Rfam assigns this 104-nucleotide RNA sequence from Turnera subulata to the family "MIR2275 microRNA precursor family".
Taxonomically the source falls in Turnera (Eukaryota, Magnoliopsida, eudicotyledons, Pentapetalae).
RNA sequence: AAGUUGUACGUGAAAAUUGGAGGAAACUAAACAGUUUGGAAUAUUGAUUCCUUCAAUAUAGUUUGCUUGCUGUUUAGUUUCCUCCAAUAUUUCAUUUCCAACUU
Numbered sequence: 001a002a003g004u005u006g007u008a009c010g011u012g013a014a015a016a017u018u019g020g021a022g023g024a025a026a027c028u029a030a031a032c033a034g035u036u037u038g039g040a041a042u043a044u045u046g047a048u049u050c051c052u053u054c055a056a057u058a059u060a061g062u063u064u065g066c067u068u069g070c071u072g073u074u075u076a077g078u079u080u081c082c083u084c085c086a087a088u089a090u091u092u093c094a095u096u097u098c099c100a101a102c103u104u
Base pairs, nucleotide, nucleotide: 004101005100006099008097011094012093013092014091016088017087018086019085020084021083023081024080025079026078027077028076029075030074032072033071034070035069